RNA sequence: UGUGAAGACUGGUGGCAGUUAUUUUGCAAUAACUGAGGAAAGUCCGUACUCGCACUUACUGGAAUCGUAAGUAGUUUUAGUGCGAGGUCUAAUAAACCUCGGCGGGAUUUUGUUAUCUUUCUCGACGGCUGACAAACUACCUAAGUGCUAUUUAUAACAUAUGGUAUUAGUCUAUAAAAGUGCUAUAGUGACGAAUACUCAGGAAACUGAGCAAGUGAGACGUCGUAAACCCCACUAGCGAGCAAUCCAAAUUCUUAAAUUGGUAGGAGCACCAAAGAGAGAGAAAAAUAAUCUCAAUUGGUAAUUCCCAUAAGGAGUUAAGACAGAUCACCGGUUAAAUACAGAAUACGGCUUAUUCUU
Dot-bracket structure: ...((.((((((((.((((((........))))))....[[[.[[[[[(((((((((((.......)))))).....(((((((((((.......))))))((((((............))))).)((..(((....((((...(((..........)))..))))...))).......((((..............(((((....))))).............))..))))))))))))))...(((.................)))...((((......................))))((((((.......))))))........)))))))...........]]]]]]]].)..))
RNA: Bacterial RNase P class B